[Rfam]
Annotation
Rfam assigns this 137-nucleotide RNA sequence from Sapajus apella to the family "Small nucleolar RNA SNORA42/SNORA80 family". A search with the family's covariance model found it, with a score of 122 bits. The members of this family belong to the H/ACA class of snoRNAs that guide the sites of modification of uridines to pseudouridines. The family has 21 seed sequences and 1,535 matches in Rfam 15.1. By type it is an H/ACA-box small nucleolar RNA.

Nucleotides: 137
Stems, first nucleotide, its partner, number of pairs: 001059004005054004015049006022042001024040001025038001072130004077125001083120002088115002090111006
Number, partner (000 for none) and nucleotide at each position: 001059g002058c003057a004056u005054g006053g007052g008051u009000u010000u011000g012000g013000a014000u015049u016048u017047a018046u019045g020044a021000u022042a023000a024040g025038c026000c027000c028000a029000c030000c031000a032000c033000c034000c035000c036000c037000a038025g039000a040024c041000c042022u043000c044020u045019c046018a047017u048016a049015g050000u051008g052007c053006c054005c055000c056004a057003u058002g059001c060000c061000a062000g063000a064000g065000a066000a067000a068000a069000u070000u071000g072130u073129g074128g075127c076000c077125u078000u079000g080000a081000a082000c083120c084119a085000u086000u087000g088115c089114c090111u091110g092109g093108c094107c095106u096000c097000u098000g099000u100000a101000c102000c103000c104000a105000u106095g107094g108093g109092c110091c111090a112000c113000u114089g115088g116000c117000a118000c119084u120083g121000a122000a123000g124000u125077g126000u127075g128074u129073u130072g131000c132000a133000g134000a135000g136000a137000a